[Rfam]
A member of the RNA family "Group II catalytic intron D1-D4-3" from Sinanaerobacter chloroacetimidivorans, 173 nucleotides long. Rfam describes the family as follows. Group II introns are found in rRNA, tRNA and mRNA of organelles in fungi, plants and protists, and also in mRNA in bacteria. The pairing is the family consensus, mapped onto this sequence. The source organism's lineage runs through Bacteria, Bacillati, Bacillota, Peptostreptococcales and Sinanaerobacter.
RNA sequence: UCCAUCGUGAGGUGGAAUCUGAAGGAAGCCGGAGGCAAAGUCCCGGCCUGACGAACAGAAACUGCAUAUAAGGCAUAUGUAAACCGGACGAGUUUGCUGAACAAAACGAAGUCCAAUGCUAUCCGAGGCUUACGGUGUAAAUGCAGCAGGUAUAUGGGAUGAAGGGGCGCGAG
Numbered sequence: 001u002c003c004a005u006c007g008u009g010a011g012g013u014g015g016a017a018u019c020u021g022a023a024g025g026a027a028g029c030c031g032g033a034g035g036c037a038a039a040g041u042c043c044c045g046g047c048c049u050g051a052c053g054a055a056c057a058g059a060a061a062c063u064g065c066a067u068a069u070a071a072g073g074c075a076u077a078u079g080u081a082a083a084c085c086g087g088a089c090g091a092g093u094u095u096g097c098u099g100a101a102c103a104a105a106a107c108g109a110a111g112u113c114c115a116a117u118g119c120u121a122u123c124c125g126a127g128g129c130u131u132a133c134g135g136u137g138u139a140a141a142u143g144c145a146g147c148a149g150g151u152a153u154a155u156g157g158g159a160u161g162a163a164g165g166g167g168c169g170c171g172a173g
Stems, first nucleotide, its partner, number of pairs: 001016006030171002036165001040160006046151005062146006073138003078134005084128001086114004092107004